The family of this 62-nucleotide sequence from Theropithecus gelada is "U7 small nuclear RNA". The organism belongs to Theropithecus, within Eukaryota. A reference for the family is Spycher et al. (1994), "3' end processing of mouse histone pre-mRNA: evidence for additional base-pairing between U7 snRNA and pre-mRNA", Nucleic Acids Res. It scores 49 bits against the family's covariance model. The family's consensus secondary structure was predicted with PFOLD.

RNA sequence: UAGUGUUACAAUUAUUUUAGAAUUUGUCUAGCAGGCUUUCCAGUUUCCGCCGAAAAGCUCCC
Numbered sequence: 001u002a003g004u005g006u007u008a009c010a011a012u013u014a015u016u017u018u019a020g021a022a023u024u025u026g027u028c029u030a031g032c033a034g035g036c037u038u039u040c041c042a043g044u045u046u047c048c049g050c051c052g053a054a055a056a057g058c059u060c061c062c
Stems, first nucleotide, its partner, number of pairs: 034059006041052001043050002
Rfam describes the family as follows. Animal histone pre-mRNAs are spliced by a different mechanism than nuclear pre-mRNAs and self-splicing introns.